[Rfam]
RNA sequence: ACUUAAGUUUACUAGGGUUCCGCCGACGGCAGUCGGGACUGGUCCGAGAGUAAACCGCUCUUGUUGCAAGGGCGCCACGGAAGGAUAAAAACCUGGGAGAU
Numbered sequence: 001a002c003u004u005a006a007g008u009u010u011a012c013u014a015g016g017g018u019u020c021c022g023c024c025g026a027c028g029g030c031a032g033u034c035g036g037g038a039c040u041g042g043u044c045c046g047a048g049a050g051u052a053a054a055c056c057g058c059u060c061u062u063g064u065u066g067c068a069a070g071g072g073c074g075c076c077a078c079g080g081a082a083g084g085a086u087a088a089a090a091a092c093c094u095g096g097g098a099g100a101u
Base pairs, nucleotide, nucleotide: 007055008054009053010052011051012050015045016044020042021041022039023036024035025034026033027032056074057073058072059071060070061069062068063067076096078099082094083093084092
RNA: Guanidine-I riboswitch aptamer
Organism: Cohnella nanjingensis